[Rfam]
RNA sequence: AACCUGCGUAGAGGCGCUGUUUUCAUCAGUAUUGCGAGCUAGUUGGCAAACUUAUCUCGUAAGAAAGGGAAAAUAGCCGAAGAAUUUAUCUGGGCACAGAUUUUUUCUGGGGUAGUAUAAAAUAUAUACUGCACUGUCACUUGUUUAGUGUUGAGCUACAAGGUUU
Number, nucleotide and partner (000 for none) at each position: 001a000002a000003c000004c000005u000006g000007c000008g159009u158010a157011g156012a000013g000014g000015c000016g077017c076018u075019g074020u073021u072022u071023u070024c069025a000026u000027c000028a000029g000030u000031a000032u062033u061034g060035c059036g058037a057038g056039c000040u000041a000042g000043u000044u000045g000046g000047c000048a000049a000050a000051c000052u000053u000054a000055u000056c038057u037058c036059g035060u034061a033062a032063g000064a000065a000066a000067g000068g000069g024070a023071a022072a021073a020074u019075a018076g017077c016078c000079g000080a000081a108082g107083a106084a105085u000086u000087u000088a101089u100090c099091u098092g097093g000094g000095c000096a000097c092098a091099g090100a089101u088102u000103u000104u000105u084106u083107c082108u081109g135110g134111g000112g132113u131114a130115g129116u128117a127118u126119a125120a000121a000122a000123u000124a000125u119126a118127u117128a116129c115130u114131g113132c112133a000134c110135u109136g000137u000138c150139a149140c148141u147142u000143g000144u000145u000146u000147a141148g140149u139150g138151u000152u000153g000154a000155g000156c011157u010158a009159c008160a000161a000162g000163g000164u000165u000166u000